[Rfam]
RNA sequence: UACGUGCUCCGGGGUCGGUGCAAUUCCGAGCCGGCGGUGACAGUCCGCGACCCGCUCGCAGCCAGCGAGCGGUUGACGAGGUGAGAUUCCUCGACCGACGGUGAAAGUCCGGAUGGGAGGCAGCACGCG
Numbered sequence: 001u002a003c004g005u006g007c008u009c010c011g012g013g014g015u016c017g018g019u020g021c022a023a024u025u026c027c028g029a030g031c032c033g034g035c036g037g038u039g040a041c042a043g044u045c046c047g048c049g050a051c052c053c054g055c056u057c058g059c060a061g062c063c064a065g066c067g068a069g070c071g072g073u074u075g076a077c078g079a080g081g082u083g084a085g086a087u088u089c090c091u092c093g094a095c096c097g098a099c100g101g102u103g104a105a106a107g108u109c110c111g112g113a114u115g116g117g118a119g120g121c122a123g124c125a126c127g128c129g
Base pairs, nucleotide, nucleotide: 003127004126005125006124007123008122009120010119016028017027018026030108031107032097033096034048035047036046037045043095044094052072053071077093078092079091080090081089099111100110101109